[Rfam]
RNA sequence: AUGAUCCCCGCGGAAGAGACCGGACCCGAAAGGGCCCCGGCGCCGAAGGCGCAACCGCCCCGGAAACGCUCAGGCCAAAGGACCGCGCGGGAGCU
Numbered sequence: 001a002u003g004a005u006c007c008c009c010g011c012g013g014a015a016g017a018g019a020c021c022g023g024a025c026c027c028g029a030a031a032g033g034g035c036c037c038c039g040g041c042g043c044c045g046a047a048g049g050c051g052c053a054a055c056c057g058c059c060c061c062g063g064a065a066a067c068g069c070u071c072a073g074g075c076c077a078a079a080g081g082a083c084c085g086c087g088c089g090g091g092a093g094c095u
Base pairs, nucleotide, nucleotide: 006090007089009087010086011085012084013083020040021039022038023037042075043074044073045071046070049069050068051067055063056062
RNA: Glycine riboswitch aptamer
Organism: Microvirga alba